[Rfam]
RNA sequence: CCAAGGCGAUGAUGUGGAAGGUUGCCCGCAUCUUUAGCGGGGAGAUUUCUGCGGAGCAUGUCCGUUCUAGAAACUGGGCGAUAA
Numbered sequence: 001c002c003a004a005g006g007c008g009a010u011g012a013u014g015u016g017g018a019a020g021g022u023u024g025c026c027c028g029c030a031u032c033u034u035u036a037g038c039g040g041g042g043a044g045a046u047u048u049c050u051g052c053g054g055a056g057c058a059u060g061u062c063c064g065u066u067c068u069a070g071a072a073a074c075u076g077g078g079c080g081a082u083a084a
Stems, first nucleotide, its partner, number of pairs: 014052003019048003025041005059083004064079004

Source information:
Rfam assigns this 84-nucleotide RNA from Anaerospora hongkongensis to the family "S10-Clostridia ribosomal protein leader". On this family, see Eckert and Weinberg, BMC Microbiol 2020: "Discovery of 20 novel ribosomal leader candidates in bacteria and archaea". It is annotated as a cis-regulatory leader. The source organism's lineage runs through Bacteria, Bacillota, Selenomonadales, Sporomusaceae and Anaerospora.